RNA sequence: ACACAAGGAAGGAGGUGGUUCGAAGAAUGUAUGUUCAUAGGACUCGUGAGGUGGCUGUCCGCUAGCGCCACCGCUGCAACGGUCUCCGUUCGCGCGAGCGCUGAGCGAAUACCAGGCAGCCACCCGGCCCCCGAGCCCCCGGUCUUGUCCGAUCGGGAUCGCGCAGGUGUUUACACCCGCGAUAUGGCUCGGGGGUCGUUCCUG
Numbered sequence: 001a002c003a004c005a006a007g008g009a010a011g012g013a014g015g016u017g018g019u020u021c022g023a024a025g026a027a028u029g030u031a032u033g034u035u036c037a038u039a040g041g042a043c044u045c046g047u048g049a050g051g052u053g054g055c056u057g058u059c060c061g062c063u064a065g066c067g068c069c070a071c072c073g074c075u076g077c078a079a080c081g082g083u084c085u086c087c088g089u090u091c092g093c094g095c096g097a098g099c100g101c102u103g104a105g106c107g108a109a110u111a112c113c114a115g116g117c118a119g120c121c122a123c124c125c126g127g128c129c130c131c132c133g134a135g136c137c138c139c140c141g142g143u144c145u146u147g148u149c150c151g152a153u154c155g156g157g158a159u160c161g162c163g164c165a166g167g168u169g170u171u172u173a174c175a176c177c178c179g180c181g182a183u184a185u186g187g188c189u190c191g192g193g194g195g196u197c198g199u200u201c202c203u204g
Stems, first nucleotide, its partner, number of pairs: 014059006060107003063103006072094003125198013138157006
Shown here is a 204-nucleotide RNA from Nocardia brasiliensis, a member of the family "Actinobacteria sRNA Ms_IGR-5".
A search with the family's covariance model found it, with a score of 131 bits.